A member of the RNA family "MIR2593 microRNA precursor family" from Trifolium pratense, 116 nucleotides long. The source organism's lineage runs through Eukaryota, Streptophytina, eudicotyledons, rosids and Trifolium. The family has 7 seed sequences and 1,262 matches in Rfam 15.1.

[Rfam]
RNA sequence: AUAUAAGCAAAAAUUAACUUUUUUAGAUUCAUUGGAAAAGUGAUGUAUCUAGUCAAUAUUAUAGACUAGAUACAUUACUUUUUCAAUGAACCUAAAAAGUCAAUUUUUGCUUAUAU
Numbered sequence: 001a002u003a004u005a006a007g008c009a010a011a012a013a014u015u016a017a018c019u020u021u022u023u024u025a026g027a028u029u030c031a032u033u034g035g036a037a038a039a040g041u042g043a044u045g046u047a048u049c050u051a052g053u054c055a056a057u058a059u060u061a062u063a064g065a066c067u068a069g070a071u072a073c074a075u076u077a078c079u080u081u082u083u084c085a086a087u088g089a090a091c092c093u094a095a096a097a098a099g100u101c102a103a104u105u106u107u108u109g110c111u112u113a114u115a116u
Base pairs, nucleotide, nucleotide: 002115003114004113005112006111007110009108010107011106012105013104015102017100019099020098021097022096023095024094025093026092028090029089030088031087032086033085034084035083036082037081038080039079040078041077042076043075044074045073050068051067052066053065